[Rfam]
RNA sequence: GCGUGGGCUUAGCCGUGUGGUUACUUCGUUAAUCUGAACUCUCGUUGAAUUCUUCAUACCCUGAAAACCACUGGCGCUGUCUCGCACACUU
Numbered sequence: 001g002c003g004u005g006g007g008c009u010u011a012g013c014c015g016u017g018u019g020g021u022u023a024c025u026u027c028g029u030u031a032a033u034c035u036g037a038a039c040u041c042u043c044g045u046u047g048a049a050u051u052c053u054u055c056a057u058a059c060c061c062u063g064a065a066a067a068c069c070a071c072u073g074g075c076g077c078u079g080u081c082u083c084g085c086a087c088a089c090u091u
Stems, first nucleotide, its partner, number of pairs: 003085005012075004017071004025065004
The family of this 91-nucleotide RNA from Octopus sinensis is "Vault RNA". The base pairs follow the family's consensus structure, which is taken from published work.